[Rfam]
RNA sequence: AUCAUCACAGGGCGUUAUCUGUACCAGUGAGGACUCAUCCGAGGUCAGAUUUUUGCUUGUUGGAAACUACAACAGACCAGCUUCUGUUGGUCUUCGGAUCGGCAGGGAAUUUUUGGAAAAACAAACUCG
Numbered sequence: 001a002u003c004a005u006c007a008c009a010g011g012g013c014g015u016u017a018u019c020u021g022u023a024c025c026a027g028u029g030a031g032g033a034c035u036c037a038u039c040c041g042a043g044g045u046c047a048g049a050u051u052u053u054u055g056c057u058u059g060u061u062g063g064a065a066a067c068u069a070c071a072a073c074a075g076a077c078c079a080g081c082u083u084c085u086g087u088u089g090g091u092c093u094u095c096g097g098a099u100c101g102g103c104a105g106g107g108a109a110u111u112u113u114u115g116g117a118a119a120a121a122c123a124a125a126c127u128c129g
Stems, first nucleotide, its partner, number of pairs: 017050005023045003031040003082107011122129001
Shown here is a 129-nucleotide RNA sequence from Mytilinidion resinicola, a member of the family "U4 spliceosomal RNA". U4 small nuclear RNA (U4 snRNA) is a component of the major U2-dependent spliceosome. The family's consensus secondary structure is taken from published work. It scores 82 bits against the family's covariance model. Rfam classes the family as a spliceosomal small nuclear RNA. Lineage of the source: Eukaryota > Dikarya > Mytilinidiales > Mytilinidiaceae > Mytilinidion.